[Rfam]
RNA: Purine riboswitch aptamer
RNA sequence: AAAAUUGAAUAUAAUGACACUCAUAUAACUCUCAGAAUAUGGCUGAGAAGUCUCUACCAGACAACCGUAAAUUGUCUGACUAUGGGUGGAAUUUGAAAGUCA
Numbered sequence: 001a002a003a004a005u006u007g008a009a010u011a012u013a014a015u016g017a018c019a020c021u022c023a024u025a026u027a028a029c030u031c032u033c034a035g036a037a038u039a040u041g042g043c044u045g046a047g048a049a050g051u052c053u054c055u056a057c058c059a060g061a062c063a064a065c066c067g068u069a070a071a072u073u074g075u076c077u078g079a080c081u082a083u084g085g086g087u088g089g090a091a092u093u094u095g096a097a098a099g100u101c102a
Stems, first nucleotide, its partner, number of pairs: 018088008030048006058078007